[Rfam]
RNA sequence: CUGGUUCCGGUUCACGUCCGAUCCGUCGCACACCCGCGACUGGGCGACCCGGCGACC
Numbered sequence: 001c002u003g004g005u006u007c008c009g010g011u012u013c014a015c016g017u018c019c020g021a022u023c024c025g026u027c028g029c030a031c032a033c034c035c036g037c038g039a040c041u042g043g044g045c046g047a048c049c050c051g052g053c054g055a056c057c
Base pairs, nucleotide, nucleotide: 003057004056005055007052008051009050010049015046016045017044018043019042020041
Notes:
The family of this 57-nucleotide RNA sequence from Salinispora arenicola is "L31-Actinobacteria ribosomal protein leader". Rfam classes the family as a cis-regulatory leader. The source organism's lineage runs through Bacteria, Bacillati, Actinomycetota, Micromonosporaceae and Salinispora arenicola. The sequence is in the family's curated seed alignment.